Background:
The family of this 125-nucleotide RNA sequence from Glycine max is "MIR168 microRNA precursor family". The source organism's lineage runs through Eukaryota, Fabales, Papilionoideae, Phaseoleae and Glycine subgen. Soja.

[Rfam]
RNA sequence: CACUGUGCGGUCUCUAAUUCGCUUGGUGCAGGUCGGGAACCGGUUUUCGCGCGGAAUGGAGGAACGGUCGCCGGCGGCGAAUUGGAUCCCGCCUUGCAUCAACUGAAUCGGAGGCCGCGGUGAAG
Numbered sequence: 001c002a003c004u005g006u007g008c009g010g011u012c013u014c015u016a017a018u019u020c021g022c023u024u025g026g027u028g029c030a031g032g033u034c035g036g037g038a039a040c041c042g043g044u045u046u047u048c049g050c051g052c053g054g055a056a057u058g059g060a061g062g063a064a065c066g067g068u069c070g071c072c073g074g075c076g077g078c079g080a081a082u083u084g085g086a087u088c089c090c091g092c093c094u095u096g097c098a099u100c101a102a103c104u105g106a107a108u109c110g111g112a113g114g115c116c117g118c119g120g121u122g123a124a125g
Base pairs, nucleotide, nucleotide: 013112014111017108018107019106020105023102024101025100026099027098028097029096030095031094032093034091035090036089037088038087040085041084042083043082